The record is a 135-nucleotide RNA from Ophiophagus hannah, which matches "Small nucleolar RNA SNORA71" in Rfam. Lineage of the source: Eukaryota > Bilateria > Teleostomi > Amniota > Ophiophagus. Rfam's curators write: The members of this family belong to the H/ACA class of snoRNAs which bind a number of proteins (including dyskerin, Gar1p and Nop10p) to form snoRNP complexes. It scores 70 bits against the family's covariance model. Rfam 15.1 lists 1,805 matches to the family in 606 species.
RNA sequence: GCCUGCAUUCGAAAGGUGGGGAGGCCUUCACCUCUGGCCUUUGUCACUGAUAGUGCAGGCAGAGGAUGCCUGGAAGCAUUUCCCAUGUUUGUGAAGCCUCUUGCCAUCUCCUUCGAACACUGAGCUUUUCAGACA
Numbered sequence: 001g002c003c004u005g006c007a008u009u010c011g012a013a014a015g016g017u018g019g020g021g022a023g024g025c026c027u028u029c030a031c032c033u034c035u036g037g038c039c040u041u042u043g044u045c046a047c048u049g050a051u052a053g054u055g056c057a058g059g060c061a062g063a064g065g066a067u068g069c070c071u072g073g074a075a076g077c078a079u080u081u082c083c084c085a086u087g088u089u090u091g092u093g094a095a096g097c098c099u100c101u102u103g104c105c106a107u108c109u110c111c112u113u114c115g116a117a118c119a120c121u122g123a124g125c126u127u128u129u130c131a132g133a134c135a
Stems, first nucleotide, its partner, number of pairs: 001060009014048002017046003020041002023039004069132001071131006087118005093111001095109002